[Rfam]
RNA: tRNA
Organism: Megasphaera paucivorans
RNA sequence: GGGGACGUAGCUCAGCUGGGAGAGCAUCAGGUUCGCAAUCUGGGGGUCGAGGGUUCAAUCCCCUUCGUCUCCA
Number, nucleotide and partner (000 for none) at each position: 001g072002g071003g070004g069005a068006c067007g066008u000009a000010g025011c024012u023013c022014a000015g000016c000017u000018g000019g000020g000021a000022g013023a012024g011025c010026a000027u043028c042029a041030g040031g039032u000033u000034c000035g000036c000037a000038a000039u031040c030041u029042g028043g027044g000045g000046g000047u000048c000049g065050a064051g063052g062053g061054u000055u000056c000057a000058a000059u000060c000061c053062c052063c051064u050065u049066c007067g006068u005069c004070u003071c002072c001073a000